[Rfam]
RNA sequence: UAAUGUUACAGCUCUUUUAGAAUCUGUCUAGCAGACUUUCUAGUAAAUACCGGAAAGCCCUC
Numbered sequence: 001u002a003a004u005g006u007u008a009c010a011g012c013u014c015u016u017u018u019a020g021a022a023u024c025u026g027u028c029u030a031g032c033a034g035a036c037u038u039u040c041u042a043g044u045a046a047a048u049a050c051c052g053g054a055a056a057g058c059c060c061u062c
Stems, first nucleotide, its partner, number of pairs: 034059001036057006043050002